Description
A member of the RNA family "TPP riboswitch aptamer (THI element)" from a Paenibacillaceae bacterium, 113 nucleotides long.
[Rfam]
Nucleotides: 113
Stems, first nucleotide, its partner, number of pairs: 007100001010097001012064003017032005039059005069094004075088004
Number, partner (000 for none) and nucleotide at each position: 001000a002000g003000a004000a005000u006000a007100a008000c009000c010097u011000u012064g013063g014062g015000g016000a017032g018031c019030u020029g021028g022000a023000a024000a025000u026000g027000g028021c029020c030019g031018g032017c033000u034000g035000a036000g037000a038000g039059g040058g041057u042056a043055u044000c045000c046000c047000g048000c049000u050000a051000g052000a053000u054000g055043a056042u057041a058040c059039c060000g061000a062014c063013c064012c065000u066000u067000c068000a069094c070093c071092u072091g073000a074000u075088c076087u077086g078085g079000a080000u081000a082000a083000u084000g085078c086077c087076a088075g089000c090000g091072u092071a093070g094069g095000a096000a097010a098000c099000u100007u101000g102000g103000g104000u105000a106000g107000g108000c109000u110000u111000c112000g113000c
Source information:
From the family's description: Vitamin B(1) in its active form thiamin pyrophosphate (TPP) is an essential coenzyme that is synthesised by coupling of pyrimidine and thiazole moieties in bacteria. The previously detected thiamin-regulatory element, thi box was extended, resulting in a new, highly conserved RNA secondary structure, the THI element, which is widely distributed in eubacteria and also occurs in some archaea.